[Rfam]
RNA: mir-9229 microRNA precursor family
Organism: Myotis myotis
RNA sequence: GAGACACCCUUAUGGGGCAGGACUUUCUUCAGCAGGGCUUUGGUCGUCACUGAGUCUGCCCCUUGAGUGUGUCUCU
Numbered sequence: 001g002a003g004a005c006a007c008c009c010u011u012a013u014g015g016g017g018c019a020g021g022a023c024u025u026u027c028u029u030c031a032g033c034a035g036g037g038c039u040u041u042g043g044u045c046g047u048c049a050c051u052g053a054g055u056c057u058g059c060c061c062c063u064u065g066a067g068u069g070u071g072u073c074u075c076u
Stems, first nucleotide, its partner, number of pairs: 001075007009067004014062006021056003029053004035047001037044002